[Rfam]
RNA: tRNA
Organism: Gymnopus androsaceus
RNA sequence: GUCCCUGUCGAUUAGUGGUCAAAUCAUCGUGUUGUGGCUGUGCAGUGCUCCGCGAAGCCGGGGGCUCGAAUCCCCCCAGGGACA
Numbered sequence: 001g002u003c004c005c006u007g008u009c010g011a012u013u014a015g016u017g018g019u020c021a022a023a024u025c026a027u028c029g030u031g032u033u034g035u036g037g038c039u040g041u042g043c044a045g046u047g048c049u050c051c052g053c054g055a056a057g058c059c060g061g062g063g064g065c066u067c068g069a070a071u072c073c074c075c076c077c078a079g080g081g082a083c084a
Stems, first nucleotide, its partner, number of pairs: 001083007010025004027055005060076005